Shown here is a 413-nucleotide RNA from Gorilla gorilla, a member of the family "Small Cajal body-specific RNA 2". Gene Ontology terms of the family: RNA processing and nucleolus. The family's RNA type in Rfam is small Cajal body RNA.
[Rfam]
RNA sequence: GUUUUAGGGAGGGAGAGCGGCCUGGGUCCUGGGUGUUGUGUGCGGAGCUGUGGUGUCGCGUGUGAGGCGCGUGCGGGGUGAGUGUGAGUGGACGCGUGAGUGUGUGAGUGUGCGCGCUUGGAGCGUGUUAGGCGAGUGCGUGCGCCCACCCCUACGCCCCUCCUCCCGCUUACACUUUGAUCUUAUUUGAUCGGAUCGUGACCCCAGCCCCGCCGGGCGGACCCGAAAUGAAAAGCUCUCCUCCUGCGAAGCCCCCUCGGGGCGCUAUGCAGCGAGGCCCCUUAGGCGGCGGCAACGCUGUGGUCCCCGAGGUCCCGGAGCUGGCCCUGCGGGGCCCGGCGCUCAGAAGUGAUGAAUUGAUUUAAAAAAAAAAAAAAAGUGAAUCCAAAAGUUUGGAAACAGCUUAGGUUUUA
Numbered sequence: 001g002u003u004u005u006a007g008g009g010a011g012g013g014a015g016a017g018c019g020g021c022c023u024g025g026g027u028c029c030u031g032g033g034u035g036u037u038g039u040g041u042g043c044g045g046a047g048c049u050g051u052g053g054u055g056u057c058g059c060g061u062g063u064g065a066g067g068c069g070c071g072u073g074c075g076g077g078g079u080g081a082g083u084g085u086g087a088g089u090g091g092a093c094g095c096g097u098g099a100g101u102g103u104g105u106g107a108g109u110g111u112g113c114g115c116g117c118u119u120g121g122a123g124c125g126u127g128u129u130a131g132g133c134g135a136g137u138g139c140g141u142g143c144g145c146c147c148a149c150c151c152c153u154a155c156g157c158c159c160c161u162c163c164u165c166c167c168g169c170u171u172a173c174a175c176u177u178u179g180a181u182c183u184u185a186u187u188u189g190a191u192c193g194g195a196u197c198g199u200g201a202c203c204c205c206a207g208c209c210c211c212g213c214c215g216g217g218c219g220g221a222c223c224c225g226a227a228a229u230g231a232a233a234a235g236c237u238c239u240c241c242u243c244c245u246g247c248g249a250a251g252c253c254c255c256c257u258c259g260g261g262g263c264g265c266u267a268u269g270c271a272g273c274g275a276g277g278c279c280c281c282u283u284a285g286g287c288g289g290c291g292g293c294a295a296c297g298c299u300g301u302g303g304u305c306c307c308c309g310a311g312g313u314c315c316c317g318g319a320g321c322u323g324g325c326c327c328u329g330c331g332g333g334g335c336c337c338g339g340c341g342c343u344c345a346g347a348a349g350u351g352a353u354g355a356a357u358u359g360a361u362u363u364a365a366a367a368a369a370a371a372a373a374a375a376a377a378a379g380u381g382a383a384u385c386c387a388a389a390a391g392u393u394u395g396g397a398a399a400c401a402g403c404u405u406a407g408g409u410u411u412u413a
Stems, first nucleotide, its partner, number of pairs: 052158005057073006090105001092103004108145003113140005119134002186234003191226004196221002200218001203217003207213002255312008264304003269301002272298003277293003280289002320340005325334003373412004

On this family, see Tycowski et al., Curr Biol 2004: "Guide RNAs with 5' caps and novel box C/D snoRNA-like domains for modification of snRNAs in metazoa".